Shown here is a 72-nucleotide RNA sequence from Balaenoptera physalus, a member of the family "tRNA". The literature on the family includes a 1993 paper in Trends Biochem Sci by Hou, "The tertiary structure of tRNA and the development of the genetic code". A search with the family's covariance model found it, with a score of 51 bits. Lineage of the source: Eukaryota > Metazoa > Bilateria > Mysticeti > Balaenoptera. The base pairs follow the family's consensus structure, which is taken from published work.

[Rfam]
RNA sequence: UCUCUGGUGGUCUACUGGUUAGGACUUGGCACUUUCACUGCCGUGGCCCAGGUUCAAUCCCUGGUCAGGGAA
Numbered sequence: 001u002c003u004c005u006g007g008u009g010g011u012c013u014a015c016u017g018g019u020u021a022g023g024a025c026u027u028g029g030c031a032c033u034u035u036c037a038c039u040g041c042c043g044u045g046g047c048c049c050a051g052g053u054u055c056a057a058u059c060c061c062u063g064g065u066c067a068g069g070g071a072a
Stems, first nucleotide, its partner, number of pairs: 001071007010025004027043005048064005